RNA: Group II catalytic intron D1-D4-1
Organism: Paenibacillus cremeus
RNA sequence: UAACCAGAGCCGAGAGGCUCUGCUGAAUCCGCAGGAGUCAGCAGAGGCCAUAGUACGCAAGAUGUUGCAACAGCUUGCGGAAGGGC
Numbered sequence: 001u002a003a004c005c006a007g008a009g010c011c012g013a014g015a016g017g018c019u020c021u022g023c024u025g026a027a028u029c030c031g032c033a034g035g036a037g038u039c040a041g042c043a044g045a046g047g048c049c050a051u052a053g054u055a056c057g058c059a060a061g062a063u064g065u066u067g068c069a070a071c072a073g074c075u076u077g078c079g080g081a082a083g084g085g086c
Stems, first nucleotide, its partner, number of pairs: 001025002005022007038045002047086003056079006